[Rfam]
RNA sequence: GGGAGCGGAUGGGGUACUGGUGUCCUUCCCGGUCUUCAAAACCGAGUGGGCGGCGUGGUGCGUCGCCGGUGGGUUCGAUUCCCACACGCUCUC
Numbered sequence: 001g002g003g004a005g006c007g008g009a010u011g012g013g014g015u016a017c018u019g020g021u022g023u024c025c026u027u028c029c030c031g032g033u034c035u036u037c038a039a040a041a042c043c044g045a046g047u048g049g050g051c052g053g054c055g056u057g058g059u060g061c062g063u064c065g066c067c068g069g070u071g072g073g074u075u076c077g078a079u080u081c082c083c084a085c086a087c088g089c090u091c092u093c
Base pairs, nucleotide, nucleotide: 001093002092003091004090005089006088007087012027013026014025016023017022028046030044031043032042033041049067050066051065052064053063070084071083072082073081
RNA: Selenocysteine transfer RNA